RNA sequence: CGGGGAAAGAAGACCCUGUUGAGCUUGACUCUAGUUUGACAUUGUGAAAAGACAUAGAGGGUGUAGGAUAAGUGGGAGCUUUUGGCGCCAGUGAAAUACCACUACCUUUAUCGUUUUUUUACUUAUUUAAUAAAGCGGAAUUGGACUUCACUGUCCACUUUCUGGUGUUAAGGUCCUUUGUGGGCUGAUCCGGGUUAAAGACAUUGUCAGGUGGGGAGUUUGGCUGGGGCGGCACAUCUGUUAAAAGAUAACGCAGGUGUCCUAAGGGGGACUCAUUGAGAACAGAAAUCUCAAGUAGAACAAAAGGGUAAAAGUCCCCUUGAUUUUGAUUUUCAGUGUGAAUACAAACCAUGAAAGUGUGGCCUAUCGAUCCUUUAGUCCCUCGGAAUUUGAGGCUAGAGGUGCCAGAAAAGUUACCACAGGGAUAACUGGCUUGUGGCAGCCAAGCGUUCAUAGCGACGUUGCUUUUUGAUCCUUCGAUGUCGGCUCUUCCUAUCAUACCGAAGCAGAAUUCGGUAAGCGUUGGAUUGUUCACCCACUAAUAGGGAACGUGAGCUGGGUUUAGACCGUCGUGAGACAGGUUAGUUUUACCCUA
Number, nucleotide and partner (000 for none) at each position: 001c000002g000003g594004g593005g592006a000007a589008a588009g000010a000011a000012g000013a000014c000015c423016c422017u421018g420019u000020u419021g418022a415023g414024c413025u412026u411027g000028a219029c218030u217031c216032u000033a000034g000035u211036u210037u209038g208039a207040c206041a205042u000043u000044g122045u121046g120047a119048a118049a117050a116051g115052a114053c113054a111055u110056a109057g108058a107059g106060g105061g000062u000063g000064u000065a000066g000067g000068a000069u000070a000071a103072g102073u101074g100075g099076g000077a000078g086079c085080u000081u000082u000083u000084g000085g079086c078087g000088c000089c000090a000091g000092u000093g000094a000095a000096a000097u000098a000099c075100c074101a073102c072103u071104a000105c060106c059107u058108u057109u056110a055111u054112c000113g053114u052115u051116u050117u049118u048119u047120u046121a045122c044123u000124u000125a000126u199127u198128u197129a196130a195131u000132a000133a000134a000135g000136c192137g191138g190139a189140a000141u000142u000143g000144g155145a154146c153147u000148u000149c000150a000151c000152u000153g146154u145155c144156c000157a000158c000159u000160u000161u000162c000163u000164g000165g000166u000167g000168u000169u000170a000171a000172g186173g185174u184175c183176c182177u000178u000179u000180g000181u000182g176183g175184g174185c173186u172187g000188a000189u139190c138191c137192g136193g000194g000195u130196u129197a128198a127199a126200g000201a000202c000203a000204u000205u041206g040207u039208c038209a037210g036211g035212u000213g000214g000215g000216g031217a030218g029219u028220u000221u000222g235223g233224c232225u231226g000227g000228g000229g000230c000231g225232g224233c223234a000235c222236a258237u257238c256239u255240g254241u253242u000243a000244a000245a000246a000247g000248a000249u000250a000251a000252c000253g241254c240255a239256g238257g237258u236259g000260u000261c362262c361263u000264a000265a000266g000267g319268g318269g317270g316271a315272c314273u299274c298275a000276u294277u293278g292279a291280g290281a289282a000283c000284a000285g000286a000287a000288a000289u281290c280291u279292c278293a277294a276295g000296u000297a000298g274299a273300a309301c308302a000303a000304a000305a000306g000307g000308g301309u300310a000311a000312a000313a000314g272315u271316c270317c269318c268319c267320u000321u000322g000323a000324u348325u347326u346327u000328g000329a343330u342331u341332u340333u000334c000335a000336g000337u000338g000339u000340g332341a331342a330343u329344a000345c000346a326347a325348a324349c000350c359351a358352u357353g000354a000355a000356a000357g352358u351359g350360u000361g262362g261363c000364c000365u000366a000367u000368c000369g000370a000371u000372c000373c401374u400375u399376u398377a397378g396379u000380c000381c395382c394383u393384c392385g000386g000387a000388a000389u000390u000391u000392g384393a383394g382395g381396c378397u377398a376399g375400a374401g373402g000403u000404g000405c000406c000407a000408g000409a000410a000411a026412a025413g024414u023415u022416a000417c000418c021419a020420c018421a017422g016423g015424g000425a000426u000427a000428a000429c000430u000431g000432g473433c000434u471435u000436g470437u000438g466439g465440c464441a463442g462443c461444c000445a000446a000447g457448c456449g000450u000451u000452c000453a000454u000455a000456g448457c447458g000459a000460c000461g443462u442463u441464g440465c439466u438467u000468u000469u000470u436471g434472a000473u432474c000475c000476u000477u000478c000479g000480a000481u000482g000483u000484c559485g557486g556487c555488u554489c551490u548491u547492c546493c545494u544495a000496u000497c522498a000499u000500a517501c516502c515503g514504a513505a512506g000507c000508a000509g000510a000511a000512u505513u504514c503515g502516g501517u500518a000519a000520g000521c000522g497523u000524u538525g537526g536527a000528u534529u000530g000531u000532u000533c000534a528535c000536c526537c525538a524539c000540u000541a000542a000543u000544a494545g493546g492547g491548a490549a000550c000551g489552u000553g000554a488555g487556c486557u485558g000559g484560g000561u000562u000563u000564a000565g583566a582567c581568c580569g578570u577571c576572g000573u000574g000575a000576g571577a570578c569579a000580g568581g567582u566583u565584a000585g000586u000587u000588u008589u007590a000591c000592c005593c004594u003595a000

This 595-nucleotide part of an RNA from Neolecta irregularis belongs to the Rfam family "Eukaryotic large subunit ribosomal RNA". A search with the family's covariance model found it, with a score of 3430 bits. The organism belongs to Neolecta irregularis, within Eukaryota.